[Rfam]
RNA: c-di-GMP-I riboswitch aptamer
RNA sequence: UACGAUAAAUGGCAAACUAUUCCGAAAGGAUAGGACGCAAAGCCUAGGGUCUACGGCAUCUCCACACCGGUGGAGCGCUAUGAUCGCCUGGUUGCCGAA
Numbered sequence: 001u002a003c004g005a006u007a008a009a010u011g012g013c014a015a016a017c018u019a020u021u022c023c024g025a026a027a028g029g030a031u032a033g034g035a036c037g038c039a040a041a042g043c044c045u046a047g048g049g050u051c052u053a054c055g056g057c058a059u060c061u062c063c064a065c066a067c068c069g070g071u072g073g074a075g076c077g078c079u080a081u082g083a084u085c086g087c088c089u090g091g092u093u094g095c096c097g098a099a
Stems, first nucleotide, its partner, number of pairs: 012038002017033004022029002041093004046089003049084003056078002059075001